Rfam assigns this 103-nucleotide sequence from Alkalibacillus haloalkaliphilus to the family "Purine riboswitch aptamer". The match comes from Rfam's covariance-model search (87 bits). About the family: Riboswitches are metabolite binding domains within certain messenger RNAs that serve as precision sensors for their corresponding targets. Allosteric rearrangement of mRNA structure is mediated by ligand binding, and this results in modulation of gene expression. Pairs were carried over by alignment from the consensus structure, which is taken from published work. The organism belongs to Alkalibacillus, within Bacteria. Its Rfam clan is "Purine riboswitches".
RNA sequence: UAAAAAUUAAUAUGAAACACUUCGUAUAAUGUUGGGGAUAUGGCCCAAGAGUUUCUACCGGACUACCGUAAAUGGUCUGACUACGAGUGACGGCAAUAAUAGA
Numbered sequence: 001u002a003a004a005a006a007u008u009a010a011u012a013u014g015a016a017a018c019a020c021u022u023c024g025u026a027u028a029a030u031g032u033u034g035g036g037g038a039u040a041u042g043g044c045c046c047a048a049g050a051g052u053u054u055c056u057a058c059c060g061g062a063c064u065a066c067c068g069u070a071a072a073u074g075g076u077c078u079g080a081c082u083a084c085g086a087g088u089g090a091c092g093g094c095a096a097u098a099a100u101a102g103a
Stems, first nucleotide, its partner, number of pairs: 018089004023085004030050001032048005059079007